Source information
A member of the RNA family "mir-1421 microRNA precursor family" from Ornithorhynchus anatinus, 74 nucleotides long. The sequence is in the family's curated seed alignment. Rfam links the family to the GO terms RISC complex and miRNA-mediated post-transcriptional gene silencing.
[Rfam]
RNA sequence: CGGUGUGAGGAGGGCACAUGUGGUACAGUGUGAUAGUGGAAUAUGCUGCAUCAUAUGUGACCUCUCUGCACCGC
Numbered sequence: 001c002g003g004u005g006u007g008a009g010g011a012g013g014g015c016a017c018a019u020g021u022g023g024u025a026c027a028g029u030g031u032g033a034u035a036g037u038g039g040a041a042u043a044u045g046c047u048g049c050a051u052c053a054u055a056u057g058u059g060a061c062c063u064c065u066c067u068g069c070a071c072c073g074c
Base pairs, nucleotide, nucleotide: 003071004070005069006068007067009065010064011063012062013061015059016058017057018056019055020054021053023051024050026048027047